Shown here is a 103-nucleotide sequence from Macaca mulatta, a member of the family "Mitochondrial DNA control region secondary structure A". On this family, see Pereira et al., Mol Biol Evol 2008: "Evidence for variable selective pressures at a large secondary structure of the human mitochondrial DNA control region". It is annotated as an antisense RNA. Lineage of the source: Eukaryota > Amniota > Eutheria > Catarrhini > Macaca.
RNA sequence: UUCUUAUGUUGUAUAAGCUUCAUAGUGUAACUCUAGCAUUAACUUACCUAUAAUGCUAUUAUGUAAUUCGUGCAUUACUGCUAGUCAACAUGUAUAAUAUAUA
Numbered sequence: 001u002u003c004u005u006a007u008g009u010u011g012u013a014u015a016a017g018c019u020u021c022a023u024a025g026u027g028u029a030a031c032u033c034u035a036g037c038a039u040u041a042a043c044u045u046a047c048c049u050a051u052a053a054u055g056c057u058a059u060u061a062u063g064u065a066a067u068u069c070g071u072g073c074a075u076u077a078c079u080g081c082u083a084g085u086c087a088a089c090a091u092g093u094a095u096a097a098u099a100u101a102u103a
Base pairs, nucleotide, nucleotide: 005094006093007092008091010090011089012088017081018080023035024034025033027031036056037055040052041051061075062074063073064072065071